[Rfam]
RNA: Small nucleolar RNA SNORA38
Organism: Molossus molossus
RNA sequence: ACCUCCUACAAAGAUGUGUCGGUGGUUCCCUGUCUUUGAACACAGAAGAAUUGGAGGCAAAGAAAUAUGGACUUGGAGAAAUCUGGGGCCAGUUUGCUCCCUGCAGGCUCAAGAUCAAUUGUCCCACAGGA
Numbered sequence: 001a002c003c004u005c006c007u008a009c010a011a012a013g014a015u016g017u018g019u020c021g022g023u024g025g026u027u028c029c030c031u032g033u034c035u036u037u038g039a040a041c042a043c044a045g046a047a048g049a050a051u052u053g054g055a056g057g058c059a060a061a062g063a064a065a066u067a068u069g070g071a072c073u074u075g076g077a078g079a080a081a082u083c084u085g086g087g088g089c090c091a092g093u094u095u096g097c098u099c100c101c102u103g104c105a106g107g108c109u110c111a112a113g114a115u116c117a118a119u120u121g122u123c124c125c126a127c128a129g130g131a
Base pairs, nucleotide, nucleotide: 002057003056004055005054006053015044016043017042018041019040024030025029069124070123071122073121091109092108093107094106095105096104097103